[Rfam]
RNA: Small nucleolar RNA SNORD26
RNA sequence: CUGCAAAGAUGAUAAUACUGAACUCUCUCUUUCUGAUGGUGAAGUGGAGAAGCUCUUUAUAAGGUUCUGAGUGGC
Numbered sequence: 001c002u003g004c005a006a007a008g009a010u011g012a013u014a015a016u017a018c019u020g021a022a023c024u025c026u027c028u029c030u031u032u033c034u035g036a037u038g039g040u041g042a043a044g045u046g047g048a049g050a051a052g053c054u055c056u057u058u059a060u061a062a063g064g065u066u067c068u069g070a071g072u073g074g075c
Stems, first nucleotide, its partner, number of pairs: 001074004